RNA sequence: CCCGCCGAAGCAGAUCGCAGUCUGGCCUGGGCUGAGGUGGCCGGUGCCGUAGAGCACCGAUAGGGGGGCAAGGGGCGUUAUGCCCCACUCCCCUUUCGAACUCCGAAGGUGCCGGCUCCCAAGAAGCCCGGAGACGGGCUUGUGAGGGGUAAGCCCCACAGCCGAGAGGGGAACAACCCAGACCGGGGUUAAGGUCCCUAAGUGCCGGCUAAGUGUCAAACUGAAGGGCGUCUCUCCGCUAAGACAGCAGGGAGGUAGGCUCAGAAGCAGCCAUCCUUUAAAGAGUGCGUAACAGCUCACCUGCCGAGCGGGGGGGCCCCGAAAAUGGACGGGGCUAAGUCGGCCACCGAGACCUCGGGUCACCCUCAGUAGAGGGUGGGCGGUAGGCGGGCGCGGAGAUUGGGCGGAAGCGGGGCCGUGAGGUCCCGUGGACCGAUCUCCGUUGCAGAU
Number, nucleotide and partner (000 for none) at each position: 001c391002c390003c389004g388005c387006c386007g000008a000009a000010g000011c024012a023013g022014a021015u020016c000017g000018c000019a000020g015021u014022c013023u012024g011025g000026c133027c131028u130029g129030g128031g127032c126033u000034g000035a000036g119037g118038u000039g000040g116041c115042c114043g113044g112045u111046g110047c109048c000049g000050u000051a000052g104053a102054g101055c000056a000057c000058c000059g097060a096061u000062a094063g093064g092065g091066g090067g089068g088069c000070a000071a000072g086073g085074g084075g083076c082077g081078u000079u000080a000081u077082g076083c075084c074085c073086c072087a000088c068089u067090c066091c065092c064093c063094u062095u000096u060097c059098g000099a000100a000101c054102u053103c000104c052105g000106a000107a000108g000109g047110u046111g045112c044113c043114g042115g041116c040117u000118c037119c036120c000121a000122a000123g000124a000125a000126g032127c031128c030129c029130g028131g027132a000133g026134a000135c000136g000137g163138g162139c161140u000141u160142g159143u158144g157145a000146g156147g155148g000149g000150u000151a000152a000153g000154c000155c147156c146157c144158a143159c142160a141161g139162c138163c137164g000165a000166g000167a000168g179169g178170g177171g000172a000173a000174c000175a000176a000177c170178c169179c168180a000181g000182a000183c358184c357185g356186g355187g354188g353189u352190u000191a000192a000193g348194g347195u346196c000197c000198c000199u000200a000201a000202g345203u000204g344205c343206c342207g341208g340209c339210u000211a000212a000213g000214u000215g000216u000217c000218a000219a000220a000221c000222u000223g000224a000225a000226g320227g319228g318229c000230g317231u316232c315233u314234c313235u312236c311237c310238g309239c308240u000241a000242a000243g000244a000245c000246a000247g304248c303249a302250g301251g300252g000253a277254g276255g275256u000257a000258g272259g271260c270261u000262c000263a000264g000265a000266a000267g000268c000269a000270g260271c259272c258273a000274u000275c255276c254277u253278u282279u000280a000281a000282a278283g298284a000285g000286u000287g296288c295289g000290u000291a000292a000293c000294a000295g288296c287297u000298c283299a000300c251301c250302u249303g248304c247305c000306g000307a000308g239309c238310g237311g236312g235313g234314g233315g232316g231317c230318c228319c227320c226321g000322a000323a000324a000325a000326u000327g000328g000329a000330c000331g000332g000333g000334g000335c000336u000337a000338a000339g209340u208341c207342g206343g205344c204345c202346a195347c194348c193349g000350a000351g000352a189353c188354c187355u186356c185357g184358g183359g381360u380361c378362a377363c376364c375365c374366u000367c000368a000369g000370u000371a000372g000373a000374g365375g364376g363377u362378g361379g000380g360381c359382g000383g000384u000385a000386g006387g005388c004389g003390g002391g001392c445393g000394c442395g441396g440397a439398g438399a437400u436401u435402g434403g433404g000405c000406g000407g000408a000409a000410g429411c428412g427413g426414g425415g424416c423417c422418g000419u000420g000421a000422g417423g416424u415425c414426c413427c412428g411429u410430g000431g000432a000433c403434c402435g401436a400437u399438c398439u397440c396441c395442g394443u000444u000445g392446c000447a000448g000449a000450u000
RNA: Archaeal large subunit ribosomal RNA, nucleotides 962 to 1411
Organism: uncultured Nitrososphaerota archaeon